[Rfam]
RNA sequence: GAAAAUGAUGAGAUAUAUUUGGAAUCUCGUUCGUCUGAAUUGCUGUUGAGAAACUGAAUAUCUGACAUCU
Numbered sequence: 001g002a003a004a005a006u007g008a009u010g011a012g013a014u015a016u017a018u019u020u021g022g023a024a025u026c027u028c029g030u031u032c033g034u035c036u037g038a039a040u041u042g043c044u045g046u047u048g049a050g051a052a053a054c055u056g057a058a059u060a061u062c063u064g065a066c067a068u069c070u
Base pairs, nucleotide, nucleotide: 025051026050027049028048029047032045033044035042